[Rfam]
RNA sequence: UUAGAUUUUCUUCAUUUUCUUUUGGAAUUUUUCUGGGAUUAUUGUUGUUGAAGAUUGAUGGAGAUGAUAUGAAGAUGAAAAUGACUCAACC
Numbered sequence: 001u002u003a004g005a006u007u008u009u010c011u012u013c014a015u016u017u018u019c020u021u022u023u024g025g026a027a028u029u030u031u032u033c034u035g036g037g038a039u040u041a042u043u044g045u046u047g048u049u050g051a052a053g054a055u056u057g058a059u060g061g062a063g064a065u066g067a068u069a070u071g072a073a074g075a076u077g078a079a080a081a082u083g084a085c086u087c088a089a090c091c
Base pairs, nucleotide, nucleotide: 006084007083009081011079012078013077014076015075016074017073018072019071037056038055039054040053042051043050
This 91-nucleotide RNA sequence from Medicago truncatula belongs to the Rfam family "MIR5298 microRNA precursor family". It scores 74 bits against the family's covariance model. The family's consensus secondary structure was predicted with RNAalifold. NCBI's taxonomy places the organism under Eukaryota, rosids, Hologalegina, Trifolieae, Medicago.